[Rfam]
RNA sequence: UUUACAGAGUCUAUUUGACAUACUGGCCGCCUCCAUUACUUCAAAGACAAAUCAUUUUAUAAGUUGGGUAGGUAAGAAGAAGUACAUCAAUGGAGGUGGACAGAAUGCCAAAUUGGCUCUGCAAC
Numbered sequence: 001u002u003u004a005c006a007g008a009g010u011c012u013a014u015u016u017g018a019c020a021u022a023c024u025g026g027c028c029g030c031c032u033c034c035a036u037u038a039c040u041u042c043a044a045a046g047a048c049a050a051a052u053c054a055u056u057u058u059a060u061a062a063g064u065u066g067g068g069u070a071g072g073u074a075a076g077a078a079g080a081a082g083u084a085c086a087u088c089a090a091u092g093g094a095g096g097u098g099g100a101c102a103g104a105a106u107g108c109c110a111a112a113u114u115g116g117c118u119c120u121g122c123a124a125c
Stems, first nucleotide, its partner, number of pairs: 011115001015111003019107002024102002027099011
Notes
MIR394 microRNA precursor family: a 125-nucleotide RNA sequence from Gossypium raimondii. A search with the family's covariance model found it, with a score of 65 bits. The source organism's lineage runs through Eukaryota, Viridiplantae, eudicotyledons, rosids and Gossypium. The family has 19 seed sequences and 724 matches in Rfam 15.1. Its family is annotated with RISC complex and miRNA-mediated post-transcriptional gene silencing in the Gene Ontology.